[Rfam]
RNA sequence: CGCUUGGGGGAUCGCCGUCCGCCAGCGCAGAUGCGCCCGCGGGCGCGAUCGGU
Dot-bracket structure: ...............(((((((..((((....))))..)))))))........